Rfam assigns this 112-nucleotide sequence from Coffea canephora to the family "MIR398 microRNA precursor family". For this family Rfam cites "Expression of Arabidopsis MIRNA genes" (Xie et al., Plant Physiol, 2005). A search with the family's covariance model found it, with a score of 57 bits. Pairs were carried over by alignment from the consensus structure, which was predicted with WAR.
RNA sequence: AGAGAUCCUGCAGGGGCGACCUGAGAACACAUUGAACACAAAUCAAGGAUUUUAUCUUGACAACAGCAAUUUUGUGGCAUAUGUGUUCUCAUGUUGCCCCUGUUGGAUCCUU
Numbered sequence: 001a002g003a004g005a006u007c008c009u010g011c012a013g014g015g016g017c018g019a020c021c022u023g024a025g026a027a028c029a030c031a032u033u034g035a036a037c038a039c040a041a042a043u044c045a046a047g048g049a050u051u052u053u054a055u056c057u058u059g060a061c062a063a064c065a066g067c068a069a070u071u072u073u074g075u076g077g078c079a080u081a082u083g084u085g086u087u088c089u090c091a092u093g094u095u096g097c098c099c100c101u102g103u104u105g106g107a108u109c110c111u112u
Base pairs, nucleotide, nucleotide: 007106008105011102012101013100014099016097017096018095019094023090024089025088026087027086028085029084030083031082032081